Record summary:
This 94-nucleotide RNA from Alloiococcus otitis belongs to the Rfam family "Selenocysteine transfer RNA". A search with the family's covariance model found it, with a score of 69 bits. Lineage of the source: Bacteria > Bacillota > Bacilli > Alloiococcus > Alloiococcus otitis.
RNA sequence: GGGAAUGGAUGGGAAACUGGUGUUCCCUCUGGUCUUCAAAACCAGUAUGAGGGGUUAGGAGCUCCUUGGGUGAGUUCGAUUCUCACACAUUCCC
Numbered sequence: 001g002g003g004a005a006u007g008g009a010u011g012g013g014a015a016a017c018u019g020g021u022g023u024u025c026c027c028u029c030u031g032g033u034c035u036u037c038a039a040a041a042c043c044a045g046u047a048u049g050a051g052g053g054g055u056u057a058g059g060a061g062c063u064c065c066u067u068g069g070g071u072g073a074g075u076u077c078g079a080u081u082c083u084c085a086c087a088c089a090u091u092c093c094c
Base pairs, nucleotide, nucleotide: 001094002093003092004091005090006089007088008086011027012026013025015024016023017022029045030044031043032042033041048068049067050066051065052064071085072084073083074082
Notes:
The family's consensus secondary structure is taken from published work. Rfam links the family to the GO term triplet codon-amino acid adaptor activity.